[Rfam]
MIR2912 microRNA precursor family: a 157-nucleotide RNA from Populus tomentosa. Its family is annotated with miRNA-mediated post-transcriptional gene silencing and RISC complex in the Gene Ontology. A search with the family's covariance model found it, with a score of 112 bits. Lineage of the source: Eukaryota > Embryophyta > rosids > Malpighiales > Populus. The family's consensus secondary structure was predicted with RNAalifold.

RNA sequence: UCUAGAACUCAAGAUAUGGGCUGAACACUGAAUAGUGUCUGGGCUGCAGGACAAAUUCGGAUUUCUCCGUUGUUGAUAUAAUUUGGACUUGAAAACGGCCUUCUUAGAUCUUGGUGUCCACAUGAAAGUUGUAGGCCUAUGUCUUACGAAAUCUAUU
Number, nucleotide and partner (000 for none) at each position: 001u000002c000003u155004a154005g153006a152007a000008c148009u146010c000011a145012a144013g143014a142015u141016a140017u139018g138019g137020g136021c134022u133023g132024a000025a130026c000027a129028c128029u127030g000031a000032a000033u000034a000035g123036u122037g121038u000039c000040u000041g119042g118043g117044c000045u000046g000047c000048a112049g111050g110051a109052c000053a000054a105055a104056u000057u000058c000059g100060g099061a000062u098063u097064u000065c000066u000067c000068c000069g000070u000071u000072g088073u087074u086075g000076a000077u000078a000079u000080a000081a000082u000083u000084u000085g000086g074087a073088c072089u000090u000091g000092a000093a000094a000095a000096c000097g063098g062099c060100c059101u000102u000103c000104u055105u054106a000107g000108a000109u051110c050111u049112u048113g000114g000115u000116g000117u043118c042119c041120a000121c037122a036123u035124g000125a000126a000127a029128g028129u027130u025131g000132u023133a022134g021135g000136c020137c019138u018139a017140u016141g015142u014143c013144u012145u011146a009147c000148g008149a000150a000151a000152u006153c005154u004155a003156u000157u000